RNA sequence: GCGCAUUCUCAGGGCGGGGUGAAAUUCCCCACCGGCGGUGACAGUCCGCGAGCGCCAUCAUGCCGAUGGGUCAGCAGAGCCGGUGGAAUUCCGGGACCGACGGUGAAAGUCCGGACGGGAGAGAAAGGGG
Numbered sequence: 001g002c003g004c005a006u007u008c009u010c011a012g013g014g015c016g017g018g019g020u021g022a023a024a025u026u027c028c029c030c031a032c033c034g035g036c037g038g039u040g041a042c043a044g045u046c047c048g049c050g051a052g053c054g055c056c057a058u059c060a061u062g063c064c065g066a067u068g069g070g071u072c073a074g075c076a077g078a079g080c081c082g083g084u085g086g087a088a089u090u091c092c093g094g095g096a097c098c099g100a101c102g103g104u105g106a107a108a109g110u111c112c113g114g115a116c117g118g119g120a121g122a123g124a125a126a127g128g129g130g
Stems, first nucleotide, its partner, number of pairs: 004127001006125005017029003031110002033099002035049004044097002052075002080094004101113003

The family of this 130-nucleotide sequence from Salipiger aestuarii is "FMN riboswitch aptamer (RFN element)". The match comes from Rfam's covariance-model search (106 bits). From the family's description: The RFN element is a highly conserved domain that is found frequently in the 5'-untranslated regions of prokaryotic mRNAs that encode for flavin mononucleotide (FMN) biosynthesis and transport proteins. This element is a metabolite-dependent riboswitch that directly binds FMN in the absence of proteins. Pairs were carried over by alignment from the consensus structure, which is taken from published work.